[Rfam]
This 28-nucleotide sequence belongs to the Rfam family "L19-Flavobacteria ribosomal protein leader". On this family, see Eckert and Weinberg, BMC Microbiol 2020: "Discovery of 20 novel ribosomal leader candidates in bacteria and archaea". Pairs were carried over by alignment from the consensus structure, which is taken from published work. The sequence is in the family's curated seed alignment.
RNA sequence: CAACCGCUGACGAUGGUCGUGAAUGUUG
Number, nucleotide and partner (000 for none) at each position: 001c028002a027003a026004c025005c000006g000007c000008u023009g000010a020011c019012g018013a017014u000015g000016g000017u013018c012019g011020u010021g000022a000023a008024u000025g004026u003027u002028g001